[Rfam]
RNA: Ascomycota telomerase RNA, nucleotides 1136 to 1522
RNA sequence: AAUCAAACAGAAGGUGUCAUCUUGUUCGUGUCGAGGGUUUUUCCAGACUGCGUUCUGUCAUGACGACUUUCGGUGUUAUCCUGUUGACGAAGGUAUCUAACUAUACUGGGAUUAACAGCUACUCGGGACAGUUUUCAGCCUUGCAUUCUCCUUGCUUCCAAAGGCAAGAUCCGCGGUUCGGGUUCGAAGCAGCGCCGGGACCCAUCUCGAGUUGGAGUCAAAGUUUCGUACUUGUCUGGUGUUGUGACGGGCCCAGCCGUGGGUUGAGUCUGAGGUUGCCAGGUCGCAUAGCUGGACUGGGUUGUACCGUUGGAUCUUGGACAGGCCUGGUUGGAUAGGUAGUCCUGGUUGUCCUCUCGCCAGAAAUGGUGUGGAGGGCAACCCCCC
Numbered sequence: 001a002a003u004c005a006a007a008c009a010g011a012a013g014g015u016g017u018c019a020u021c022u023u024g025u026u027c028g029u030g031u032c033g034a035g036g037g038u039u040u041u042u043c044c045a046g047a048c049u050g051c052g053u054u055c056u057g058u059c060a061u062g063a064c065g066a067c068u069u070u071c072g073g074u075g076u077u078a079u080c081c082u083g084u085u086g087a088c089g090a091a092g093g094u095a096u097c098u099a100a101c102u103a104u105a106c107u108g109g110g111a112u113u114a115a116c117a118g119c120u121a122c123u124c125g126g127g128a129c130a131g132u133u134u135u136c137a138g139c140c141u142u143g144c145a146u147u148c149u150c151c152u153u154g155c156u157u158c159c160a161a162a163g164g165c166a167a168g169a170u171c172c173g174c175g176g177u178u179c180g181g182g183u184u185c186g187a188a189g190c191a192g193c194g195c196c197g198g199g200a201c202c203c204a205u206c207u208c209g210a211g212u213u214g215g216a217g218u219c220a221a222a223g224u225u226u227c228g229u230a231c232u233u234g235u236c237u238g239g240u241g242u243u244g245u246g247a248c249g250g251g252c253c254c255a256g257c258c259g260u261g262g263g264u265u266g267a268g269u270c271u272g273a274g275g276u277u278g279c280c281a282g283g284u285c286g287c288a289u290a291g292c293u294g295g296a297c298u299g300g301g302u303u304g305u306a307c308c309g310u311u312g313g314a315u316c317u318u319g320g321a322c323a324g325g326c327c328u329g330g331u332u333g334g335a336u337a338g339g340u341a342g343u344c345c346u347g348g349u350u351g352u353c354c355u356c357u358c359g360c361c362a363g364a365a366a367u368g369g370u371g372u373g374g375a376g377g378g379c380a381a382c383c384c385c386c387c
Stems, first nucleotide, its partner, number of pairs: 199219003202215003221233004